Nucleotides: 492
Base pairs, nucleotide, nucleotide: 001432002431003430004429005428006427011024013022014021015020026138027137028136029135030134031133032132038123042121043120044119045118046117047116048115054109055107056106062102063101066098068096069095070094075091076090077089078088079087080086142197143196144195145194202213203212204211217395218394219393220392221391222390223389227385228384229383236382238381239380240379241378242377243376262356263355264354266353267352268351269350270349271348273346274345275344283340284339285338286337287336289313290312291311295307296306314318319334323332324331396422397421399419401417402416403415404414405413433487435484436483437482438481439480440479441478443476444475452470453469454468455467457466458465459464
Number, partner (000 for none) and nucleotide at each position: 001432c002431c003430c004429u005428c006427c007000g008000a009000a010000g011024u012000u013022u014021c015020c016000c017000u018000c019000a020015g021014g022013a023000u024011a025000g026138c027137u028136g029135g030134a031133g032132c033000c034000c035000a036000c037000a038123c039000g040000a041000g042121u043120u044119c045118u046117a047116u048115c049000g050000g051000g052000u053000a054109a055107a056106g057000c058000c059000a060000a061000u062102g063101a064000u065000u066098a067000g068096a069095g070094g071000c072000a073000u074000c075091g076090g077089g078088g079087g080086c081000g082000c083000a084000a085000c086080g087079c088078c089077c090076u091075c092000g093000a094070c095069c096068u097000a098066u099000u100000c101063u102062c103000a104000a105000a106056c107055u108000u109054u110000a111000a112000a113000u114000a115048g116047g117046u118045a119044g120043g121042a122000c123038g124000g125000c126000g127000c128000g129000g130000c131000u132032g133031c134030u135029u136028c137027g138026g139000u140000g141000a142197g143196c144195c145194g146000u147000g148000c149000c150000a151000c152000g153000g154000a155000a156000u157000c158000g159000g160000g161000a162000g163000c164000u165000c166000c167000a168000a169000g170000u171000g172000g173000g174000c175000c176000a177000u178000u179000u180000u181000u182000g183000g184000u185000a186000a187000g188000c189000a190000g191000a192000a193000c194145u195144g196143g197142c198000g199000a200000u201000g202213c203212g204211g205000g206000a207000u208000g209000a210000a211204c212203c213202g214000g215000a216000a217395g218394c219393c220392g221391g222390g223389u224000u225000a226000c227385g228384g229383u230000g231000c232000c233000a234000a235000a236382c237000u238381g239380c240379g241378c242377g243376c244000u245000a246000a247000c248000c249000u250000a251000g252000a253000a254000c255000c256000c257000a258000c259000a260000a261000a262356g263355g264354g265000u266353g267352u268351u269350g270349g271348u272000c273346g274345a275344u276000u277000a278000a279000g280000a281000c282000a283340g284339c285338a286337g287336g288000a289313c290312g291311g292000u293000g294000g295307u296306c297000a298000u299000g300000g301000a302000a303000g304000u305000c306296g307295a308000a309000a310000u311291c312290c313289g314318c315000u316000a317000a318314g319334g320000a321000g322000u323332g324331u325000g326000u327000a328000a329000c330000a331324a332323c333000u334319c335000a336287c337286c338285u339284g340283c341000c342000g343000a344275a345274u346273c347000a348271a349270c350269u351268a352267g353266c354264c355263u356262c357000g358000a359000a360000a361000a362000u363000g364000g365000a366000u367000g368000g369000c370000g371000c372000u373000g374000a375000a376243g377242c378241g379240c380239g381238c382236g383229a384228c385227c386000c387000a388000c389223a390222c391221c392220c393219g394218g395217c396422c397421a398000u399419c400000u401417g402416g403415g404414c405413g406000a407000g408000c409000g410000a411000c412000a413405u414404g415403c416402c417401c418000c419399g420000a421397u422396g423000a424000g425000u426000a427006g428005g429004a430003g431002g432001g433487c434000g435484c436483g437482g438481c439480g440479g441478c442000g443476g444475c445000c446000g447000c448000a449000a450000a451000a452470c453469c454468c455467g456000g457466g458465g459464c460000g461000c462000g463000a464459g465458c466457c467455c468454g469453g470452g471000c472000g473000g474000a475444g476443c477000g478441g479440c480439c481438g482437u483436c484435g485000g486000u487433g488000c489000a490000g491000a492000u
This 492-nucleotide part of an RNA from Zea mays belongs to the Rfam family "Archaeal large subunit ribosomal RNA". NCBI's taxonomy places the organism under Eukaryota, Spermatophyta, Mesangiospermae, Andropogoneae, Zea.